This 110-nucleotide RNA sequence from a Lachnospiraceae bacterium belongs to the Rfam family "SAM riboswitch aptamer (S box leader)". It scores 60 bits against the family's covariance model. Lineage of the source: Bacteria > Bacillati > Bacillota > Clostridia > Lachnospiraceae.
RNA sequence: CUCUUAUUAAGAGUGAUGGAGAUGCAAAGGAUCUGUGAAGUCACGACAACCUCCGAUUACGGAAGUCGGAAGGUGCCAACCUUGAGCGAGUUAUGUUCGAACAAUGAGAG
Number, nucleotide and partner (000 for none) at each position: 001c110002u109003c108004u107005u106006a105007u104008u103009a000010a000011g000012a000013g044014u043015g042016a041017u040018g000019g000020a000021g033022a032023u031024g000025c000026a000027a082028a000029g000030g000031a023032u022033c021034u000035g000036u000037g000038a000039a000040g017041u016042c015043a014044c013045g077046a000047c075048a074049a000050c073051c072052u070053c069054c068055g067056a066057u065058u000059a000060c000061g000062g000063a000064a000065g057066u056067c055068g054069g053070a052071a000072g051073g050074u048075g047076c000077c045078a000079a000080c000081c000082u027083u099084g098085a097086g096087c095088g094089a000090g000091u000092u000093a000094u088095g087096u086097u085098c084099g083100a000101a000102c000103a008104a007105u006106g005107a004108g003109a002110g001